Rfam assigns this 342-nucleotide part of an RNA from Encephalitozoon cuniculi to the family "Microsporidia small subunit ribosomal RNA". Pairs were carried over by alignment from the consensus structure, which is taken from published work. The organism belongs to Encephalitozoon, within Eukaryota. Rfam links the family to the GO terms ribosome and structural constituent of ribosome. The sequence is in the family's curated seed alignment. On this family, see Yusupov et al., Science 2001: "Crystal structure of the ribosome at 5.5 A resolution".

[Rfam]
Nucleotides: 342
Stems, first nucleotide, its partner, number of pairs: 001304003011190004018183003081177003085172002089168001092166007099143002103139008114125001116123001148159001151158002195236006205229001209225001211223002247300003251292002254276006261269003279286002306334002315326004
Number, partner (000 for none) and nucleotide at each position: 001304c002303a003302g004000u005000u006000a007000a008000a009000a010000u011190g012189u013188c014187c015000g016000u017000a018183g019182u020181c021000u022000g023000u024000u025000g026000u027000g028000u029000a030000u031000g032000u033000c034000u035000u036000u037000g038000u039000g040000u041000g042000u043000g044000a045000u046000g047000u048000u049000u050000g051000u052000g053000g054000u055000u056000g057000u058000g059000u060000g061000u062000g063000g064000a065000u066000g067000u068000a069000g070000u071000g072000a073000u074000g075000u076000g077000u078000g079000u080000g081177g082176c083175a084000g085172a086171g087000g088000a089168c090000g091000a092166g093165g094164g095163g096162c097161a098160c099143u100142g101000g102000a103139u104138a105137g106136u107135u108134g109133g110132g111000c112000g113000a114125g115000a116123g117000g118000u119000g120000a121000a122000a123116u124000g125114c126000g127000a128000a129000g130000a131000c132110c133109c134108u135107g136106a137105c138104u139103g140000g141000a142100c143099g144000a145000g146000c147000g148159g149000a150000a151158g152157c153000g154000a155000a156000g157152g158151c159148u160098g161097u162096g163095c164094u165093c166092u167000u168089g169000g170000a171086c172085u173000a174000a175083u176082g177081u178000u179000g180000c181020g182019a183018u184000g185000a186000a187014g188013g189012a190011c191000g192000a193000a194000g195236g196235c197234u198233a199232g200231a201000g202000g203000a204000u205229c206000g207000a208000a209225a210000u211223c212222g213000a214000u215000u216000a217000g218000a219000u220000a221000c222212c223211g224000u225209u226000u227000u228000a229205g230000u231200u232199c233198u234197a235196g236195c237000a238000g239000u240000a241000a242000a243000c244000g245000a246000u247300g248299c249298c250000g251292a252291c253000u254276g255275g256274a257273c258272g259271g260000g261269a262268c263267a264000g265000u266000g267263u268262g269261u270000g271259u272258u273257g274256u275255c276254c277000a278000u279286g280285a281000g282000a283000a284000a285280u286279c287000u288000u289000g290000a291252g292251u293000a294000u295000g296000c297000g298249g299248g300247u301000u302003c303002u304001g305000g306334g307333g308000a309000u310000a311000g312000u313000a314000u315326g316325c317324u318323c319000g320000c321000a322000a323318g324317a325316g326315u327000g328000g329000a330000a331000a332000c333307u334306u335000g336000a337000a338000g339000a340000g341000a342000u